[Rfam]
RNA: BsrG
Organism: Chengkuizengella marina
RNA sequence: AUACAAUAUUUGGCAUAGGGCGGUAGGUUGAUCCCUCAUUUAUAAUGUUAGGGGGUGAGGCCAUGACGAUAUUUGAGUCAAUUUAUUUGAUGAUCAGCUUUGCGUUACUUGUAGUAGCGAUACUGUCAUUUCAUCAUAAAAAAUAGACCGCCCUCUCGCUAAAGGUUGCUGGUCUAUUUUUUGACUAAUACCCUACCGUCUAAAGCGGAUAUUGUAUGAAACCGUAUGAUGUUAGUAGCAUCUGCG
Numbered sequence: 001a002u003a004c005a006a007u008a009u010u011u012g013g014c015a016u017a018g019g020g021c022g023g024u025a026g027g028u029u030g031a032u033c034c035c036u037c038a039u040u041u042a043u044a045a046u047g048u049u050a051g052g053g054g055g056u057g058a059g060g061c062c063a064u065g066a067c068g069a070u071a072u073u074u075g076a077g078u079c080a081a082u083u084u085a086u087u088u089g090a091u092g093a094u095c096a097g098c099u100u101u102g103c104g105u106u107a108c109u110u111g112u113a114g115u116a117g118c119g120a121u122a123c124u125g126u127c128a129u130u131u132c133a134u135c136a137u138a139a140a141a142a143a144u145a146g147a148c149c150g151c152c153c154u155c156u157c158g159c160u161a162a163a164g165g166u167u168g169c170u171g172g173u174c175u176a177u178u179u180u181u182u183g184a185c186u187a188a189u190a191c192c193c194u195a196c197c198g199u200c201u202a203a204a205g206c207g208g209a210u211a212u213u214g215u216a217u218g219a220a221a222c223c224g225u226a227u228g229a230u231g232u233u234a235g236u237a238g239c240a241u242c243u244g245c246g
Base pairs, nucleotide, nucleotide: 001217002216003215004214006212007211009209010195012193013192014158015156017154018153019152020151022148024146029058031056033055034054035053036052037051065127066126067125068124070122071121078093079092080091103119104118105117106116161181162180163179196208197207198206199205223246224245225244226243228242229241230240231239232238233237